[Rfam]
RNA sequence: CAAGAAGUAGUUUAGUUAAAAAUGCCAGCUUUGGGAGUUGGAGAUGAGGGUUUGAAUCCUUUCUUCCUGA
Numbered sequence: 001c002a003a004g005a006a007g008u009a010g011u012u013u014a015g016u017u018a019a020a021a022a023u024g025c026c027a028g029c030u031u032u033g034g035g036a037g038u039u040g041g042a043g044a045u046g047a048g049g050g051u052u053u054g055a056a057u058c059c060u061u062u063c064u065u066c067c068u069g070a
Stems, first nucleotide, its partner, number of pairs: 001069002004066004010023004025041005046062005
RNA: tRNA
Organism: Quiscalus mexicanus